[Rfam]
RNA: small nucleolar RNA snoR117
Organism: Nelumbo nucifera
RNA sequence: GGCUGGUGAUGCAUUGAAUUGUGCGUACCAUCUGAAAUUGAUUCUUUGACGAAAUCCCUUUUACAUCUCUCUCUCUGAGGCUU
Numbered sequence: 001g002g003c004u005g006g007u008g009a010u011g012c013a014u015u016g017a018a019u020u021g022u023g024c025g026u027a028c029c030a031u032c033u034g035a036a037a038u039u040g041a042u043u044c045u046u047u048g049a050c051g052a053a054a055u056c057c058c059u060u061u062u063a064c065a066u067c068u069c070u071c072u073c074u075c076u077g078a079g080g081c082u083u
Base pairs, nucleotide, nucleotide: 001082002081003080004079